[Rfam]
RNA sequence: UCGCUGUGUCGCGACUGGCGUUGAGGUGGGACACCACCGGGGAGCGACGAACACGGCAAUCGACCGCACGCCUGGGCCGCCGUG
Numbered sequence: 001u002c003g004c005u006g007u008g009u010c011g012c013g014a015c016u017g018g019c020g021u022u023g024a025g026g027u028g029g030g031a032c033a034c035c036a037c038c039g040g041g042g043a044g045c046g047a048c049g050a051a052c053a054c055g056g057c058a059a060u061c062g063a064c065c066g067c068a069c070g071c072c073u074g075g076g077c078c079g080c081c082g083u084g
Base pairs, nucleotide, nucleotide: 005051007049008048009047010046011045012044015041016040017072018071019070020069021068026037027036028035029034061079062078064076065075
RNA: ZMP/ZTP riboswitch aptamer (pfl RNA motif)
Organism: Microbacterium dextranolyticum